About this RNA
Bacterial small subunit ribosomal RNA: a 578-nucleotide part of an RNA from Suttonella indologenes. The family has 99 seed sequences and 42,628 matches in Rfam 15.1.

RNA sequence: UGACGGGGACCCGCACAAGCGGUGGAGCAUGUGGUUUAAUUCGAUGCAACGCGAAGAACCUUACCAGGCCUUGACAUCCAGAGAAGUUACCAGAGAUGGUUUCGUGCCUUCGGGAACUCUGAGACAGGUGUUGCAUGGCUGUCGUCAGCUCGUGUCGUGAGAUGUUGGGUUAAGUCCCGCAACGAGCGCAACCCUUAUCCUUACUUGCCAGCACUUCGGGUGGGAACUAUAAGGAGACUGCCGGUGACAAGCCGGAGGAAGGUGGGGAUGACGUCAAGUCAUCAUGGCCCUUACGGCCUGGGCUACACACGUGCUACAAUGGUCGGUACAGACGGUUGCCAACCCGCGAGGGGGAGCUAAUCUGAGAAAGCCGAUCGUAGUCCGGAUUGCACUCUGCAACUCGAGUGCAUGAAGUCGGAAUCGCUAGUAAUCGCGAAUCAGAACGUCGCGGUGAAUACGUUCCCGGGUCUUGUACACACUGCCCGUCACACCAUGGGAGUGGGUUGCACCAGAAGUAGCUAGCUUAUCAGGGCGGUUACCACGGUGUGAUUCAUGACUGGGGUGAAGUCGUAACAAGG
Numbered sequence: 001u002g003a004c005g006g007g008g009a010c011c012c013g014c015a016c017a018a019g020c021g022g023u024g025g026a027g028c029a030u031g032u033g034g035u036u037u038a039a040u041u042c043g044a045u046g047c048a049a050c051g052c053g054a055a056g057a058a059c060c061u062u063a064c065c066a067g068g069c070c071u072u073g074a075c076a077u078c079c080a081g082a083g084a085a086g087u088u089a090c091c092a093g094a095g096a097u098g099g100u101u102u103c104g105u106g107c108c109u110u111c112g113g114g115a116a117c118u119c120u121g122a123g124a125c126a127g128g129u130g131u132u133g134c135a136u137g138g139c140u141g142u143c144g145u146c147a148g149c150u151c152g153u154g155u156c157g158u159g160a161g162a163u164g165u166u167g168g169g170u171u172a173a174g175u176c177c178c179g180c181a182a183c184g185a186g187c188g189c190a191a192c193c194c195u196u197a198u199c200c201u202u203a204c205u206u207g208c209c210a211g212c213a214c215u216u217c218g219g220g221u222g223g224g225a226a227c228u229a230u231a232a233g234g235a236g237a238c239u240g241c242c243g244g245u246g247a248c249a250a251g252c253c254g255g256a257g258g259a260a261g262g263u264g265g266g267g268a269u270g271a272c273g274u275c276a277a278g279u280c281a282u283c284a285u286g287g288c289c290c291u292u293a294c295g296g297c298c299u300g301g302g303c304u305a306c307a308c309a310c311g312u313g314c315u316a317c318a319a320u321g322g323u324c325g326g327u328a329c330a331g332a333c334g335g336u337u338g339c340c341a342a343c344c345c346g347c348g349a350g351g352g353g354g355a356g357c358u359a360a361u362c363u364g365a366g367a368a369a370g371c372c373g374a375u376c377g378u379a380g381u382c383c384g385g386a387u388u389g390c391a392c393u394c395u396g397c398a399a400c401u402c403g404a405g406u407g408c409a410u411g412a413a414g415u416c417g418g419a420a421u422c423g424c425u426a427g428u429a430a431u432c433g434c435g436a437a438u439c440a441g442a443a444c445g446u447c448g449c450g451g452u453g454a455a456u457a458c459g460u461u462c463c464c465g466g467g468u469c470u471u472g473u474a475c476a477c478a479c480u481g482c483c484c485g486u487c488a489c490a491c492c493a494u495g496g497g498a499g500u501g502g503g504u505u506g507c508a509c510c511a512g513a514a515g516u517a518g519c520u521a522g523c524u525u526a527u528c529a530g531g532g533c534g535g536u537u538a539c540c541a542c543g544g545u546g547u548g549a550u551u552c553a554u555g556a557c558u559g560g561g562g563u564g565a566a567g568u569c570g571u572a573a574c575a576a577g578g
Base pairs, nucleotide, nucleotide: 001476002475003473004472005471007470008469009468010467011466012465013464015460016459019424020423021422022421023420024317026315027314028313029312030311031310032309033308034306035305040055041054042053043052064301065300066299067298068297069296070295077124078123079121080120081119082118083117086103089100090099091098092097105116107114108113127290128289130288131287132286133285136284137283138279139278140277141275143273144272148187149186150185151184152183153182154163155162156161166179167178168177169176193267194266195265196264198235199234200233201232202231203230208224209223212222213221214220238258239257241255242254243253244252245251321376322375323374324373325372326371327370333364334363335362338357339356343352344351345350383414388409389408390407391406392405393404394403430452431451432450433449434448435447436446479577481574484570485569489564490563491562492561494559495558496557499554500553501552502551503550504549505548506547507546508545509544510543515539516538517537518536519535520534522533523532524531525530